[Rfam]
RNA sequence: AGUUCCGAGGAGCGUUGCAACCUUCAGCAAGAAGGCCAGGCUCGGAUCUCUACAUUGCAACCGCGCUCACCUGCA
Numbered sequence: 001a002g003u004u005c006c007g008a009g010g011a012g013c014g015u016u017g018c019a020a021c022c023u024u025c026a027g028c029a030a031g032a033a034g035g036c037c038a039g040g041c042u043c044g045g046a047u048c049u050c051u052a053c054a055u056u057g058c059a060a061c062c063g064c065g066c067u068c069a070c071c072u073g074c075a
Stems, first nucleotide, its partner, number of pairs: 002048001004046005021035005
The family of this 75-nucleotide RNA sequence from beta proteobacterium AAP65 is "SAH (S-adenosyl-L-homocysteine) riboswitch aptamer".
It scores 63 bits against the family's covariance model.
The organism belongs to Betaproteobacteria, within Bacteria.
Its family is annotated with regulation of gene expression and S-adenosylhomocysteine metabolic process in the Gene Ontology.